This 86-nucleotide RNA from Actinidia chinensis belongs to the Rfam family "Small nucleolar RNA SNORD25". The source organism's lineage runs through Eukaryota, Embryophyta, Magnoliopsida, Mesangiospermae and Actinidia chinensis.
RNA sequence: UGCAACGAUGAUGAGCAAUACAGACCUGUAAUGAUUUGCGAACAUGAUCGCAAACUCUUUACGAACAUCUAAGGGACUGAGUUGCA
Numbered sequence: 001u002g003c004a005a006c007g008a009u010g011a012u013g014a015g016c017a018a019u020a021c022a023g024a025c026c027u028g029u030a031a032u033g034a035u036u037u038g039c040g041a042a043c044a045u046g047a048u049c050g051c052a053a054a055c056u057c058u059u060u061a062c063g064a065a066c067a068u069c070u071a072a073g074g075g076a077c078u079g080a081g082u083u084g085c086a
Stems, first nucleotide, its partner, number of pairs: 002085005
For this family Rfam cites "Identification of 10 novel snoRNA gene clusters from Arabidopsis thaliana" (Qu et al., Nucleic Acids Res, 2001). Its Rfam clan is "SNORD25 clan". A search with the family's covariance model found it, with a score of 61 bits.